[Rfam]
RNA sequence: AACAGCACCUGGCCAAUAUUAUGUAAUAUCAGAAGCAAAUUGAUUAUUACAUGUAUUGGGUAGGAGCUGUUCA
Numbered sequence: 001a002a003c004a005g006c007a008c009c010u011g012g013c014c015a016a017u018a019u020u021a022u023g024u025a026a027u028a029u030c031a032g033a034a035g036c037a038a039a040u041u042g043a044u045u046a047u048u049a050c051a052u053g054u055a056u057u058g059g060g061u062a063g064g065a066g067c068u069g070u071u072c073a
Stems, first nucleotide, its partner, number of pairs: 008064004013059003020053008028044004